[Rfam]
Nucleotides: 081
Stems, first nucleotide, its partner, number of pairs: 001080003005075002008072002
Number, partner (000 for none) and nucleotide at each position: 001080g002079g003078c004000a005075u006074g007000a008072u009071g010000a011000a012000u013000u014000g015000a016000a017000u018000g019000c020000a021000u022000a023000u024000a025000g026000u027000c028000c029000u030000g031000a032000a033000g034000a035000g036000a037000g038000a039000u040000g041000a042000u043000g044000a045000c046000c047000c048000a049000a050000a051000a052000g053000u054000c055000a056000u057000g058000c059000u060000c061000a062000g063000u064000a065000c066000a067000a068000u069000u070000a071009c072008a073000c074006u075005g076000a077000g078003g079002c080001c081000c
The record is an 81-nucleotide RNA from Bos taurus, which matches "Small nucleolar RNA SNORD115" in Rfam. The family has 32 seed sequences and 3,387 matches in Rfam 15.1. By type it is a C/D-box small nucleolar RNA. The match comes from Rfam's covariance-model search (57 bits). Gene Ontology terms of the family: RNA processing and nucleolus.